[Rfam]
RNA sequence: UACUACUAAACCCUAUUUUUACCUCCACGUGGUGACCGCUGGGAGCUCCUCCUUAACGAAAAGCUGCAGACGGAGAAGG
Numbered sequence: 001u002a003c004u005a006c007u008a009a010a011c012c013c014u015a016u017u018u019u020u021a022c023c024u025c026c027a028c029g030u031g032g033u034g035a036c037c038g039c040u041g042g043g044a045g046c047u048c049c050u051c052c053u054u055a056a057c058g059a060a061a062a063g064c065u066g067c068a069g070a071c072g073g074a075g076a077a078g079g
Base pairs, nucleotide, nucleotide: 012079013078014077016075017074018073019072021033022032023031044065045064046063047062050059052058
This 79-nucleotide sequence from Hermetia illucens belongs to the Rfam family "drz-agam-1 ribozyme". It scores 38 bits against the family's covariance model. Its family is annotated with catalytic activity in the Gene Ontology. A reference for the family is Webb et al. (2009), "Widespread occurrence of self-cleaving ribozymes", Science.